RNA sequence: AGACCGUUUCUGACACCAGUAGUGAAGUAUGUUAUUUAAUUCGAUGAUCCACGAAAAACCUUACCACAACUUGAAUAUUUAUGGCGCCGCCAUAAAAACAGGAGUUGCACGGCUGUUUUCAGUUAAUGUUGUGAAACUGUGGUUUUUCCAUGAAAUUAACAGAAUCCUUUGCUUUAUUUAUAAAAUGUUUUAUAAAGCAAUCUUUCUUUAUAGUAGUAAAGAUAAGAAGGAAAAAGACAAGUCAUCAUGGCCCUUAUGUUGUGGGCUAUAGACGUGCCACGUAGUCCUUAACAAAGAGAUGCAAAAAUGUGAAUUUUAGCUAAUCUCAAAAAAGAGGAUAUAAAUUAUACAAGGAUUGUAGUCUGAAACUCGACUAUAUGAAUAAGUAAUUACUAGUAAUCGUGAAUCACCAUGUCACGGUGAAUUUUAUCUCGGAUUGGUACUAA
Numbered sequence: 001a002g003a004c005c006g007u008u009u010c011u012g013a014c015a016c017c018a019g020u021a022g023u024g025a026a027g028u029a030u031g032u033u034a035u036u037u038a039a040u041u042c043g044a045u046g047a048u049c050c051a052c053g054a055a056a057a058a059c060c061u062u063a064c065c066a067c068a069a070c071u072u073g074a075a076u077a078u079u080u081a082u083g084g085c086g087c088c089g090c091c092a093u094a095a096a097a098a099c100a101g102g103a104g105u106u107g108c109a110c111g112g113c114u115g116u117u118u119u120c121a122g123u124u125a126a127u128g129u130u131g132u133g134a135a136a137c138u139g140u141g142g143u144u145u146u147u148c149c150a151u152g153a154a155a156u157u158a159a160c161a162g163a164a165u166c167c168u169u170u171g172c173u174u175u176a177u178u179u180a181u182a183a184a185a186u187g188u189u190u191u192a193u194a195a196a197g198c199a200a201u202c203u204u205u206c207u208u209u210a211u212a213g214u215a216g217u218a219a220a221g222a223u224a225a226g227a228a229g230g231a232a233a234a235a236g237a238c239a240a241g242u243c244a245u246c247a248u249g250g251c252c253c254u255u256a257u258g259u260u261g262u263g264g265g266c267u268a269u270a271g272a273c274g275u276g277c278c279a280c281g282u283a284g285u286c287c288u289u290a291a292c293a294a295a296g297a298g299a300u301g302c303a304a305a306a307a308u309g310u311g312a313a314u315u316u317u318a319g320c321u322a323a324u325c326u327c328a329a330a331a332a333a334g335a336g337g338a339u340a341u342a343a344a345u346u347a348u349a350c351a352a353g354g355a356u357u358g359u360a361g362u363c364u365g366a367a368a369c370u371c372g373a374c375u376a377u378a379u380g381a382a383u384a385a386g387u388a389a390u391u392a393c394u395a396g397u398a399a400u401c402g403u404g405a406a407u408c409a410c411c412a413u414g415u416c417a418c419g420g421u422g423a424a425u426u427u428u429a430u431c432u433c434g435g436a437u438u439g440g441u442a443c444u445a446a
Stems, first nucleotide, its partner, number of pairs: 001444002003441003009436005015428001019393005024280001027277007034269002040055004064264007078097001079095007101253002104251004111246001112242003115238004122160006128137003140152002142149001166230004171198007181187002201221001203219002206216002284339006296327003301320002306315003352383001357378007399421007
RNA: Bacterial small subunit ribosomal RNA, nucleotides 828 to 1273